[Rfam]
RNA sequence: ACUGCUGUAGCGCGGGUUGUAAUUGAUGAAGGCAAAGCCGCGCGCCUGAUCGAUGCUGUGAAACAGUGGGUUCCAAUCAAACAUCGCCAGCAUAUAGCCGGGCAGAGAGUUGGCGAGGAACAUCUUGCCCGAGGCGAUCAUAUUGGCACGUUG
Numbered sequence: 001a002c003u004g005c006u007g008u009a010g011c012g013c014g015g016g017u018u019g020u021a022a023u024u025g026a027u028g029a030a031g032g033c034a035a036a037g038c039c040g041c042g043c044g045c046c047u048g049a050u051c052g053a054u055g056c057u058g059u060g061a062a063a064c065a066g067u068g069g070g071u072u073c074c075a076a077u078c079a080a081a082c083a084u085c086g087c088c089a090g091c092a093u094a095u096a097g098c099c100g101g102g103c104a105g106a107g108a109g110u111u112g113g114c115g116a117g118g119a120a121c122a123u124c125u126u127g128c129c130c131g132a133g134g135c136g137a138u139c140a141u142a143u144u145g146g147c148a149c150g151u152u153g
Stems, first nucleotide, its partner, number of pairs: 003034002006032001008030001013025003037057001039055002041052002064153005070082003086147005092141002098134002101130002103127003107123001110119002
Overview: Ruegeria cis2 sRNA: a 153-nucleotide sequence from Sulfitobacter sp. D7. Gene Ontology term of the family: regulation of gene expression.